[Rfam]
RNA sequence: AUGAAGAAUUUGAAGAUUUGAACUUGCAGACUUGAAGAAUUUGAAGACUUCAACUUGCAGACUUGACAAAUUUUGAAUACUUUAAGU
Number, nucleotide and partner (000 for none) at each position: 001a000002u084003g083004a082005a081006g080007a000008a000009u077010u076011u075012g074013a073014a072015g000016a000017u068018u000019u066020g000021a064022a000023c000024u000025u059026g058027c057028a056029g000030a000031c000032u053033u052034g051035a050036a049037g048038a000039a000040u000041u000042u000043g000044a000045a000046g000047a000048c037049u036050u035051c034052a033053a032054c000055u000056u028057g027058c026059a025060g000061a000062c000063u000064u021065g000066a019067c000068a017069a000070a000071u000072u014073u013074u012075g011076a010077a009078u000079a000080c006081u005082u004083u003084a002085a000086g000087u000
MIR8024 microRNA precursor family: an 87-nucleotide RNA from Solanum tuberosum.